Shown here is a 129-nucleotide RNA from Chiloscyllium punctatum, a member of the family "Small nucleolar RNA SNORA71". Rfam 15.1 lists 1,805 matches to the family in 606 species. A reference for the family is Ganot et al. (1997), "The family of box ACA small nucleolar RNAs is defined by an evolutionarily conserved secondary structure and ubiquitous sequence elements essential for RNA accumulation", Genes Dev. Rfam describes the family as follows. The members of this family belong to the H/ACA class of snoRNAs which bind a number of proteins (including dyskerin, Gar1p and Nop10p) to form snoRNP complexes. This class of snoRNAs are thought to guide the sites of modification of uridines to pseudouridines by forming direct base pairing interactions with substrate RNAs. This family includes U71 (SNORA71), ACA39 (SNORA39) and ACA60 (SNORA60). A search with the family's covariance model found it, with a score of 77 bits.
RNA sequence: ACCUGCAUUCGAAAGUGAUUGUGGUAUUAACCGUUGCCAGAUCAUUGAUACUGCAGGAAGAUUAAAUCAAAAGACUUCCCCGUGUUUAUUGGAGCAUCGAUUUCCAUUAAACCUCAUAGCAUUUGGACA
Numbered sequence: 001a002c003c004u005g006c007a008u009u010c011g012a013a014a015g016u017g018a019u020u021g022u023g024g025u026a027u028u029a030a031c032c033g034u035u036g037c038c039a040g041a042u043c044a045u046u047g048a049u050a051c052u053g054c055a056g057g058a059a060g061a062u063u064a065a066a067u068c069a070a071a072a073g074a075c076u077u078c079c080c081c082g083u084g085u086u087u088a089u090u091g092g093a094g095c096a097u098c099g100a101u102u103u104c105c106a107u108u109a110a111a112c113c114u115c116a117u118a119g120c121a122u123u124u125g126g127a128c129a
Stems, first nucleotide, its partner, number of pairs: 002057006009050001014046007023038004068125004073120001084112005089106001091104003